[Rfam]
RNA: Lysine riboswitch aptamer
Organism: Secundilactobacillus mixtipabuli
RNA sequence: UAAAUCGAAGAGGUUGCAACCGACAUUAGUCAGUUCACUCAGUCACUGUUAUGACUAAGAGGUGAACCAAAAGGGGACGUUGCCGAAGCGCUGACUAUAACAGUAGCCAGUUUGCUGGGACAUGAUUCAAUAAAUCAUGGACUGUCGCAGAUAUAACGUCUGCGGAGCGCUAUCGAAAAU
Numbered sequence: 001u002a003a004a005u006c007g008a009a010g011a012g013g014u015u016g017c018a019a020c021c022g023a024c025a026u027u028a029g030u031c032a033g034u035u036c037a038c039u040c041a042g043u044c045a046c047u048g049u050u051a052u053g054a055c056u057a058a059g060a061g062g063u064g065a066a067c068c069a070a071a072a073g074g075g076g077a078c079g080u081u082g083c084c085g086a087a088g089c090g091c092u093g094a095c096u097a098u099a100a101c102a103g104u105a106g107c108c109a110g111u112u113u114g115c116u117g118g119g120a121c122a123u124g125a126u127u128c129a130a131u132a133a134a135u136c137a138u139g140g141a142c143u144g145u146c147g148c149a150g151a152u153a154u155a156a157c158g159u160c161u162g163c164g165g166a167g168c169g170c171u172a173u174c175g176a177a178a179a180u
Stems, first nucleotide, its partner, number of pairs: 006175002009171002016083005024075001033067007087116004091110003095106004117143002121139007145165007